[Rfam]
RNA sequence: GCUGGACGGAAGCUUACUGUAGAGGUCACGUGCAGAGUGCUCGUCACUCCAAUCACCUCGGGGAAGGUCUGAGAAACGAGCCAAUAGAUGCCCUAGCAGGGUGUCACCUGAUGCGGGUGAGCGAGUGCACAGAGACUUGGGCCAAUGGCGGAGAUCAGAGCAUGAGAAGCCGGUCAGCGCGGUUACAAAGUGCUCCUCGGUGGAUGCGAUCUCGUCGGCAUUGGAAACGCUCGCGGCUGGCGUAUGAGUGCAAUGUGUAAGCUGGUAAACACUUCCAGAACCCAAUUCAGACUACUCUCCGUCCGGU
Numbered sequence: 001g002c003u004g005g006a007c008g009g010a011a012g013c014u015u016a017c018u019g020u021a022g023a024g025g026u027c028a029c030g031u032g033c034a035g036a037g038u039g040c041u042c043g044u045c046a047c048u049c050c051a052a053u054c055a056c057c058u059c060g061g062g063g064a065a066g067g068u069c070u071g072a073g074a075a076a077c078g079a080g081c082c083a084a085u086a087g088a089u090g091c092c093c094u095a096g097c098a099g100g101g102u103g104u105c106a107c108c109u110g111a112u113g114c115g116g117g118u119g120a121g122c123g124a125g126u127g128c129a130c131a132g133a134g135a136c137u138u139g140g141g142c143c144a145a146u147g148g149c150g151g152a153g154a155u156c157a158g159a160g161c162a163u164g165a166g167a168a169g170c171c172g173g174u175c176a177g178c179g180c181g182g183u184u185a186c187a188a189a190g191u192g193c194u195c196c197u198c199g200g201u202g203g204a205u206g207c208g209a210u211c212u213c214g215u216c217g218g219c220a221u222u223g224g225a226a227a228c229g230c231u232c233g234c235g236g237c238u239g240g241c242g243u244a245u246g247a248g249u250g251c252a253a254u255g256u257g258u259a260a261g262c263u264g265g266u267a268a269a270c271a272c273u274u275c276c277a278g279a280a281c282c283c284a285a286u287u288c289a290g291a292c293u294a295c296u297c298u299c300c301g302u303c304c305g306g307u
Stems, first nucleotide, its partner, number of pairs: 001307004008300003013261005022059004035049005069290005079238004089103005104120006121234007141219003262278004267273001
RNA: Nuclear RNase P